Notes
Rfam assigns this 147-nucleotide RNA from Vitis vinifera to the family "small nucleolar RNA snoR137". Its family is annotated with RNA processing and nucleolus in the Gene Ontology. The base pairs follow the family's consensus structure, which was predicted with RNAalifold.

RNA sequence: GUUGCUUCUUACUGGUGAACUCCCUCUAGAUCAUAAUGAGGGAUGUUCAUGUUUCCGAAGCAUACACCAAUCAUCUUUGCCAGUAUUAAACAGCGCCUGGGUGCUUAUCCUUAUUCACCACCGCGCUACCUGUCUCCUGGUACAUUU
Numbered sequence: 001g002u003u004g005c006u007u008c009u010u011a012c013u014g015g016u017g018a019a020c021u022c023c024c025u026c027u028a029g030a031u032c033a034u035a036a037u038g039a040g041g042g043a044u045g046u047u048c049a050u051g052u053u054u055c056c057g058a059a060g061c062a063u064a065c066a067c068c069a070a071u072c073a074u075c076u077u078u079g080c081c082a083g084u085a086u087u088a089a090a091c092a093g094c095g096c097c098u099g100g101g102u103g104c105u106u107a108u109c110c111u112u113a114u115u116c117a118c119c120a121c122c123g124c125g126c127u128a129c130c131u132g133u134c135u136c137c138u139g140g141u142a143c144a145u146u147u
Stems, first nucleotide, its partner, number of pairs: 003062006016049005021043005079141005085135001092127003096123001100119001
Dot-bracket structure: ..((((((.......((((((((((.............))))).))))).......))))))................(((((.(......(((.(...(..................)...).))).......).)))))......